[Rfam]
RNA: JUMPstart RNA
RNA sequence: CAGUGCAUUGGUAACUGGAAGCCAGGGGCGGUAGCAUG
Numbered sequence: 001c002a003g004u005g006c007a008u009u010g011g012u013a014a015c016u017g018g019a020a021g022c023c024a025g026g027g028g029c030g031g032u033a034g035c036a037u038g
Stems, first nucleotide, its partner, number of pairs: 008025005